[Rfam]
RNA sequence: GGGAAAUGGCAACUGGGCUUGGGAGAAGAGCCAUCCCAAGUCCAACGACAGAUAGGCUCA
Numbered sequence: 001g002g003g004a005a006a007u008g009g010c011a012a013c014u015g016g017g018c019u020u021g022g023g024a025g026a027a028g029a030g031c032c033a034u035c036c037c038a039a040g041u042c043c044a045a046c047g048a049c050a051g052a053u054a055g056g057c058u059c060a
Base pairs, nucleotide, nucleotide: 014044015043016042017041018040019039020038021037022036023035024034028059029058030057031056032055
This 60-nucleotide sequence from Pipistrellus kuhlii belongs to the Rfam family "Ma3 gene ribosomal frameshift signal". It is annotated as a frameshift element. NCBI's taxonomy places the organism under Eukaryota, Metazoa, Bilateria, Yangochiroptera, Pipistrellus. Its family is annotated with translational frameshifting in the Gene Ontology. Rfam 15.1 lists 565 matches to the family in 155 species.